[Rfam]
RNA sequence: CGGGGAAAGAAGACCCUGUUGAGCUUGACUCUAGUUUGACAUUGUGAAAAGACAUAUGGGGUGUAGAAUAGGUGGGAGCUCCGGCGCCAGUGAAAUACCACUACCUUUAUCGUUUUUUUACUUAUUCAAUGAAGCGGAACUGGGCUUCACCGCCCAUCUUCUGGCGUUAAGGUCCUUCGCGGGCCGAUCCGGGUUGAAGACAUUGUCAGGUGGGGAGUUUGGCUGGGGCGGCACAUCUGUUAAACCACAACGCAGGUGUCCUAAGGGGGACUCAUGGAGAACAGAAAUCUCCAGUAGAACAAAAGGGUAAAAGUCCCCUUGAUUUUGAUUUUCAGUGUGAAUACAAACCAUGAAAGUGUGGCCUAUCGAUCCUUUAGUCCCUCGAAAUUUGAGGCUAGAGGUGCCAGAAAAGUUACCACAGGGAUAACUGGCUUGUGGCAGCCAAGCGUUCAUAGCGACGUUGCUUUUUGAUCCUUCGAUGUCGGCUCUUCCUAUCAUACCGAAGCAGAAUUCGGUAAGCGUUGGAUUGUUCACCCACUAAUAGGGAACGUGAGCUGGGUUUAGACCGUCGUGAGACAGGUUAGUUUUACCCUA
Dot-bracket structure: ..(((.((......((((.(((((((.((((...(((((((..(((((((((((((.(((..........(((((..((....))............))))).))).))).))))))))))...(((((.....((((....(((......)))................(((((.....)))))..))))..))))).....)))))))....))))..((((.....))).)((((((...........))))))..((....((((((((.((((((.......))))))...))((......))....))))))....(((..((((.......))))..))).(((....))).))..........((((((..((((.......)))))))))).........)))))..))))))........(.(.(.((((((...((.......))...))))))...)).)..........(((((((((((..(..((((((......))))))....).(((.(.....).))).....)))))..)..)))).).....(((((((....))).))))....))..))).
Numbered sequence: 001c002g003g004g005g006a007a008a009g010a011a012g013a014c015c016c017u018g019u020u021g022a023g024c025u026u027g028a029c030u031c032u033a034g035u036u037u038g039a040c041a042u043u044g045u046g047a048a049a050a051g052a053c054a055u056a057u058g059g060g061g062u063g064u065a066g067a068a069u070a071g072g073u074g075g076g077a078g079c080u081c082c083g084g085c086g087c088c089a090g091u092g093a094a095a096u097a098c099c100a101c102u103a104c105c106u107u108u109a110u111c112g113u114u115u116u117u118u119u120a121c122u123u124a125u126u127c128a129a130u131g132a133a134g135c136g137g138a139a140c141u142g143g144g145c146u147u148c149a150c151c152g153c154c155c156a157u158c159u160u161c162u163g164g165c166g167u168u169a170a171g172g173u174c175c176u177u178c179g180c181g182g183g184c185c186g187a188u189c190c191g192g193g194u195u196g197a198a199g200a201c202a203u204u205g206u207c208a209g210g211u212g213g214g215g216a217g218u219u220u221g222g223c224u225g226g227g228g229c230g231g232c233a234c235a236u237c238u239g240u241u242a243a244a245c246c247a248c249a250a251c252g253c254a255g256g257u258g259u260c261c262u263a264a265g266g267g268g269g270a271c272u273c274a275u276g277g278a279g280a281a282c283a284g285a286a287a288u289c290u291c292c293a294g295u296a297g298a299a300c301a302a303a304a305g306g307g308u309a310a311a312a313g314u315c316c317c318c319u320u321g322a323u324u325u326u327g328a329u330u331u332u333c334a335g336u337g338u339g340a341a342u343a344c345a346a347a348c349c350a351u352g353a354a355a356g357u358g359u360g361g362c363c364u365a366u367c368g369a370u371c372c373u374u375u376a377g378u379c380c381c382u383c384g385a386a387a388u389u390u391g392a393g394g395c396u397a398g399a400g401g402u403g404c405c406a407g408a409a410a411a412g413u414u415a416c417c418a419c420a421g422g423g424a425u426a427a428c429u430g431g432c433u434u435g436u437g438g439c440a441g442c443c444a445a446g447c448g449u450u451c452a453u454a455g456c457g458a459c460g461u462u463g464c465u466u467u468u469u470g471a472u473c474c475u476u477c478g479a480u481g482u483c484g485g486c487u488c489u490u491c492c493u494a495u496c497a498u499a500c501c502g503a504a505g506c507a508g509a510a511u512u513c514g515g516u517a518a519g520c521g522u523u524g525g526a527u528u529g530u531u532c533a534c535c536c537a538c539u540a541a542u543a544g545g546g547a548a549c550g551u552g553a554g555c556u557g558g559g560u561u562u563a564g565a566c567c568g569u570c571g572u573g574a575g576a577c578a579g580g581u582u583a584g585u586u587u588u589a590c591c592c593u594a
Stems, first nucleotide, its partner, number of pairs: 003593003007588002015422004020418002022414005028218004035210007044121010054110003058106003071102005078085002125198005135191004143154003171185005221234001222232003235257006260361002266318006272298002275293006299308002323347003328342004349358003372400006380394004431472001433470001435469001437465006446456002483558001484556004488550001489547005496521001499516006523537003527533001564582004568577003